[Rfam]
RNA: Small nucleolar RNA snoR31/Z110/Z27
Organism: Artemisia annua
RNA sequence: GUUGUCAAAUGAUGAUAAAUGAAAUGAAUCUUAGGACACCUUUGGACACAGCUUUUAGCUGUGGGUGAAAAUAAUUUUAAUCUGAUGAUGAC
Numbered sequence: 001g002u003u004g005u006c007a008a009a010u011g012a013u014g015a016u017a018a019a020u021g022a023a024a025u026g027a028a029u030c031u032u033a034g035g036a037c038a039c040c041u042u043u044g045g046a047c048a049c050a051g052c053u054u055u056u057a058g059c060u061g062u063g064g065g066u067g068a069a070a071a072u073a074a075u076u077u078u079a080a081u082c083u084g085a086u087g088a089u090g091a092c
Stems, first nucleotide, its partner, number of pairs: 001092007045049001